[Rfam]
Nucleotides: 075
Stems, first nucleotide, its partner, number of pairs: 003073002006070026
Number, partner (000 for none) and nucleotide at each position: 001000u002000u003073u004072u005000a006070u007069u008068u009067u010066u011065a012064g013063a014062u015061u016060u017059g018058c019057a020056a021055g022054c023053u024052u025051g026050c027049c028048u029047g030046a031045c032000u033000g034000a035000u036000c037000c038000u039000u040000a041000g042000u043000u044000a045031g046030u047029c048028a049027g050026g051025c052024a053023a054022g055021c056020u057019u058018g059017c060016a061015a062014a063013u064012c065011u066010a067009a068008a069007a070006a071000c072004a073003a074000a075000a